A member of the RNA family "U11 spliceosomal RNA" from Macaca nemestrina, 142 nucleotides long. Its family is annotated with mRNA 5'-splice site recognition, U11 snRNP and pre-mRNA 5'-splice site binding in the Gene Ontology. It is annotated as a spliceosomal small nuclear RNA. On this family, see Montzka and Steitz, Proc Natl Acad Sci U S A 1988: "Additional low-abundance human small nuclear ribonucleoproteins: U11, U12, etc". The organism belongs to Macaca, within Eukaryota.
[Rfam]
RNA sequence: AAAGGGGGCUUCUGUCACGAGUGGCACACGUUGGGCAACUCAGUUGCUCUUCACGAGGAAUCAACAUCAGGAGGUUUUGGAAGAACGAUUUUUUGGUAGUUGGGUAGCUUGUGAAAAAAAAAAUGUUUUCAGGCAAAUCCUC
Numbered sequence: 001a002a003a004g005g006g007g008g009c010u011u012c013u014g015u016c017a018c019g020a021g022u023g024g025c026a027c028a029c030g031u032u033g034g035g036c037a038a039c040u041c042a043g044u045u046g047c048u049c050u051u052c053a054c055g056a057g058g059a060a061u062c063a064a065c066a067u068c069a070g071g072a073g074g075u076u077u078u079g080g081a082a083g084a085a086c087g088a089u090u091u092u093u094u095g096g097u098a099g100u101u102g103g104g105u106a107g108c109u110u111g112u113g114a115a116a117a118a119a120a121a122a123a124u125g126u127u128u129u130c131a132g133g134c135a136a137a138u139c140c141u142c
Base pairs, nucleotide, nucleotide: 009083010082011081012080013026014025015024016023017022027055030052033049034048035047036046037045038044057078058077059076060075061074062073102140103139104138105137107134108133109132110131111130113129114128115127116126